[Rfam]
RNA: BsrG
Organism: Aneurinibacillus soli
RNA sequence: UACAAAUAGAUACGGCUCCCUAAGGUGGGUUGGCUCAUCCCCGAUAGAAAGGGGGUGACGCCAUGACAGUAUACGAGGCGUUAAUGUUAAUGGUCGCUUUCGGAUCGCUGAUUGUUGCGAUGCUGUCAUUUAAUCAAAAGAAAUAGGCCCCCUUGAGUUUUGGCGAACACCGGGGACCUUUUUCUUGCUCUAUCCAUCAUCUGAGCCAUCCCCCUUGGGGAAUGUCUAUUGUACAUAGACCGUUUUGGUGUUACCAGCACCAGACG
Numbered sequence: 001u002a003c004a005a006a007u008a009g010a011u012a013c014g015g016c017u018c019c020c021u022a023a024g025g026u027g028g029g030u031u032g033g034c035u036c037a038u039c040c041c042c043g044a045u046a047g048a049a050a051g052g053g054g055g056u057g058a059c060g061c062c063a064u065g066a067c068a069g070u071a072u073a074c075g076a077g078g079c080g081u082u083a084a085u086g087u088u089a090a091u092g093g094u095c096g097c098u099u100u101c102g103g104a105u106c107g108c109u110g111a112u113u114g115u116u117g118c119g120a121u122g123c124u125g126u127c128a129u130u131u132a133a134u135c136a137a138a139a140g141a142a143a144u145a146g147g148c149c150c151c152c153u154u155g156a157g158u159u160u161u162g163g164c165g166a167a168c169a170c171c172g173g174g175g176a177c178c179u180u181u182u183u184c185u186u187g188c189u190c191u192a193u194c195c196a197u198c199a200u201c202u203g204a205g206c207c208a209u210c211c212c213c214c215u216u217g218g219g220g221a222a223u224g225u226c227u228a229u230u231g232u233a234c235a236u237a238g239a240c241c242g243u244u245u246u247g248g249u250g251u252u253a254c255c256a257g258c259a260c261c262a263g264a265c266g
Stems, first nucleotide, its partner, number of pairs: 001233005008227003012223001014207005020157001021155005028148001030146002035058003039054004065127007079092002101119002104116001167193001209222001211220002241266003246262007